[Rfam]
RNA sequence: CCUCUUAACUUGGCAUGAUGACGUCCAUUUGAUGCUUCAUGUAUGCUUUUAAGAGGUACAGUAAAGGCGGGAGUAUAUGCCUUCGGUGUCCUCAUAUAUAAUUUGAUGGAUCCCAUCCUCAAUGCUCCCUACAAUU
Numbered sequence: 001c002c003u004c005u006u007a008a009c010u011u012g013g014c015a016u017g018a019u020g021a022c023g024u025c026c027a028u029u030u031g032a033u034g035c036u037u038c039a040u041g042u043a044u045g046c047u048u049u050u051a052a053g054a055g056g057u058a059c060a061g062u063a064a065a066g067g068c069g070g071g072a073g074u075a076u077a078u079g080c081c082u083u084c085g086g087u088g089u090c091c092u093c094a095u096a097u098a099u100a101a102u103u104u105g106a107u108g109g110a111u112c113c114c115a116u117c118c119u120c121a122a123u124g125c126u127c128c129c130u131a132c133a134a135u136u
Stems, first nucleotide, its partner, number of pairs: 001056005014041005022034004070128006089110003